[Rfam]
RNA: Exoribonuclease-resistant RNA (xrRNA) plant-infecting virus (class 3)
RNA sequence: GAGUCAGCCAAACAAACACAAGUUGCAAGUGUUGGAGACUCAUUCUAGUCUUGUUA
Numbered sequence: 001g002a003g004u005c006a007g008c009c010a011a012a013c014a015a016a017c018a019c020a021a022g023u024u025g026c027a028a029g030u031g032u033u034g035g036a037g038a039c040u041c042a043u044u045c046u047a048g049u050c051u052u053g054u055u056a
Stems, first nucleotide, its partner, number of pairs: 001040001004037001008035002011033001012030002018054005